Small nucleolar RNA SNORD103/SNORD85: a 69-nucleotide sequence from Oryzias latipes. The family's RNA type in Rfam is C/D-box small nucleolar RNA. For this family Rfam cites "RNomics: an experimental approach that identifies 201 candidates for novel, small, non-messenger RNAs in mouse" (Huttenhofer et al., EMBO J, 2001). Lineage of the source: Eukaryota > Teleostomi > Teleostei > Clupeocephala > Oryzias.
RNA sequence: UUUGGCUGUGAUGACAAACUUGCCCUCACUGAAAAUAGUUCUGAUUGAGACUUUUCUUUCUGAGCCAAA
Numbered sequence: 001u002u003u004g005g006c007u008g009u010g011a012u013g014a015c016a017a018a019c020u021u022g023c024c025c026u027c028a029c030u031g032a033a034a035a036u037a038g039u040u041c042u043g044a045u046u047g048a049g050a051c052u053u054u055u056c057u058u059u060c061u062g063a064g065c066c067a068a069a
Base pairs, nucleotide, nucleotide: 001069002068003067004066005065006064
Dot-bracket structure: ((((((.........................................................))))))